Nucleotides: 266
Stems, first nucleotide, its partner, number of pairs: 001266006008058001010056002012030006019023001034054005063259003067255004073249005079243005085238005093230002097227005105220002107217003115212009124200006130192002133190005140181004149174004157166003
Number, partner (000 for none) and nucleotide at each position: 001266c002265c003264g004263u005262g006261c007000u008058a009000a010056g011055u012030g013029g014028g015027g016026a017025g018000g019023u020000a021000g022000c023019g024000g025017u026016u027015c028014c029013c030012u031000g032000u033000a034054c035053u036052u037051a038050c039000a040000a041000u042000c043000c044000g045000c046000u047000u048000a049000g050038g051037u052036a053035a054034g055011a056010c057000c058008u059000a060000a061000u062000u063259c064258c065257u066000u067255u068254g069253c070252u071000g072000a073249g074248g075247g076246u077245a078000a079243u080242g081241a082240g083239u084000u085238g086237u087236g088235a089234g090000g091000u092000c093230u094229g095000a096000c097227c098226u099225g100224a101223a102000c103000a104000c105220g106219u107217a108216g109215u110000g111000u112000u113000g114000a115212g116211a117210g118209a119208g120207c121206g122205g123204u124200c125199c126198u127197a128196g129195u130192c131191a132000a133190u134189a135188u136187a137186a138000a139000c140181c141180c142179a143178c144000g145000a146000a147000u148000c149174a150173u151172g152171u153000c154000a155000g156000g157166u158165c159164c160000g161000g162000a163000a164159g165158g166157a167000a168000g169000c170000a171152g172151c173150a174149u175000u176000a177000a178143g179142u180141g181140g182000u183000c184000a185000u186137u187136u188135g189134u190133a191131u192130g193000u194000g195129g196128c197127u198126a199125g200124g201000g202000c203000a204123g205122c206121c207120g208119u209118u210117c211116u212115u213000g214000a215109g216108c217107u218000g219106g220105c221000g222000a223101u224100u225099c226098a227097g228000g229094u230093a231000a232000c233000g234089c235088u236087u237086g238085u239083g240082c241081u242080u243079g244000u245077u246076a247075u248074u249073c250000g251000a252070a253069g254068c255067g256000a257065a258064g259063g260000u261006g262005c263004a264003c265002g266001g
A member of the RNA family "Bacterial large signal recognition particle RNA" from Macrococcoides caseolyticum, 266 nucleotides long.
By type it is a non-coding RNA gene.
The signal recognition particle (SRP) is a universally conserved ribonucleoprotein involved in the co-translational targeting of proteins to membranes.